[Rfam]
RNA sequence: CGCAGCAAGGGCACACCCGUCGAAAGACGGGGCCGCAAAACCACCGGGCUAAAUCCUCCGAGAAGACAGGCCAGCGGGGUUGCCGAUA
Numbered sequence: 001c002g003c004a005g006c007a008a009g010g011g012c013a014c015a016c017c018c019g020u021c022g023a024a025a026g027a028c029g030g031g032g033c034c035g036c037a038a039a040a041c042c043a044c045c046g047g048g049c050u051a052a053a054u055c056c057u058c059c060g061a062g063a064a065g066a067c068a069g070g071c072c073a074g075c076g077g078g079g080u081u082g083c084c085g086a087u088a
Stems, first nucleotide, its partner, number of pairs: 003085001011036002016031006034074001039081004044077003047072003
Dot-bracket structure: ..(.......((...((((((....))))))..[))..((((.((((((....................))).])))))))...)...
RNA: c-di-GMP-I-GGC riboswitch aptamer
Organism: Azoarcus sp. KH32C